The family of this 52-nucleotide RNA sequence from Rhodobacter ferrooxidans is "ffh sRNA".
The source organism's lineage runs through Bacteria, Pseudomonadota, Alphaproteobacteria, Rhodobacterales and Rhodobacter.
RNA sequence: CGGACCGGGGAUCGCCACCCAUCAGCGCGUUGCGCCCAUGGGUGACGUUGGC
Numbered sequence: 001c002g003g004a005c006c007g008g009g010g011a012u013c014g015c016c017a018c019c020c021a022u023c024a025g026c027g028c029g030u031u032g033c034g035c036c037c038a039u040g041g042g043u044g045a046c047g048u049u050g051g052c
Stems, first nucleotide, its partner, number of pairs: 016044007025035004
Background: A reference for the family is Meyer et al. (2009), "Identification of candidate structured RNAs in the marine organism 'Candidatus Pelagibacter ubique'", BMC Genomics.